Mammalian CPEB3 ribozyme: a 68-nucleotide sequence from Crocodylus porosus. The organism belongs to Crocodylus, within Eukaryota. The mammalian CPEB3 ribozyme is a self cleaving RNA located in the second intron of the CPEB3 gene which belongs to a family of genes regulating messenger RNA polyadenylation.
RNA sequence: UGUGGCAGGCCACAGAAGAAGCACUCACAGUGUGGCCAUAUCAGAUUCCAAGGAAUCUGAAUUCUGCU
Numbered sequence: 001u002g003u004g005g006c007a008g009g010c011c012a013c014a015g016a017a018g019a020a021g022c023a024c025u026c027a028c029a030g031u032g033u034g035g036c037c038a039u040a041u042c043a044g045a046u047u048c049c050a051a052g053g054a055a056u057c058u059g060a061a062u063u064c065u066g067c068u
Base pairs, nucleotide, nucleotide: 008037009036010035011034014068015067017065018064019063020062021033022032023031042059043058044057045056046055047054048053